[Rfam]
RNA sequence: GUAGGAAGGAAAACAAUUUUUCGUAUAAUCCCGGGAAUCGGCCUGGGAGUCUCUACGAGGUCACCGCAAAUGAUCUGGCUACGAAAAUGUGCACGUGAAUG
Dot-bracket structure: .................((((((((...(((((((......))))))).........((((((.......))))))...))))))))..............

The family of this 101-nucleotide RNA from Paenibacillus contaminans is "Purine riboswitch aptamer". Rfam links the family to the GO term purine nucleobase biosynthetic process. Lineage of the source: Bacteria > Bacillati > Caryophanales > Paenibacillaceae > Paenibacillus.